Necrovirus cap-independent translation element: an 81-nucleotide RNA sequence from Alphanecrovirus nicotianae.
The base pairs follow the family's consensus structure.
By type it is a cis-regulatory element.
[Rfam]
RNA sequence: UGGAGAUGGAUGCUGGAUCCUGGAAAACAGGUUUAACGGGUAGGGGGUGGUGCCCCUACCGACGCAUCACUCCAGAUACCA
Numbered sequence: 001u002g003g004a005g006a007u008g009g010a011u012g013c014u015g016g017a018u019c020c021u022g023g024a025a026a027a028c029a030g031g032u033u034u035a036a037c038g039g040g041u042a043g044g045g046g047g048u049g050g051u052g053c054c055c056c057u058a059c060c061g062a063c064g065c066a067u068c069a070c071u072c073c074a075g076a077u078a079c080c081a
Stems, first nucleotide, its partner, number of pairs: 001081003004077001007074004012070001014064002019031004039060006